[Rfam]
RNA sequence: GCCAUUCACCAGGGGUGUCCCGUCAAGGGGCUGAGAUUCUGCUUUCAUGCGCAGUGACCCGUUGAACCUGAUCCAGUUCAUACUGGCGUAGGGACGGUGCAAAGACCUGAUG
Numbered sequence: 001g002c003c004a005u006u007c008a009c010c011a012g013g014g015g016u017g018u019c020c021c022g023u024c025a026a027g028g029g030g031c032u033g034a035g036a037u038u039c040u041g042c043u044u045u046c047a048u049g050c051g052c053a054g055u056g057a058c059c060c061g062u063u064g065a066a067c068c069u070g071a072u073c074c075a076g077u078u079c080a081u082a083c084u085g086g087c088g089u090a091g092g093g094a095c096g097g098u099g100c101a102a103a104g105a106c107c108u109g110a111u112g
Stems, first nucleotide, its partner, number of pairs: 007099004012060003016054001017031005038053001040051003067092004073086004
The record is a 112-nucleotide RNA from Agrobacterium fabrum, which matches "TPP riboswitch aptamer (THI element)" in Rfam. Lineage of the source: Bacteria > Pseudomonadota > Rhizobiaceae > Agrobacterium > Agrobacterium fabrum. Rfam's curators put it in the seed alignment. The family's consensus secondary structure is taken from published work.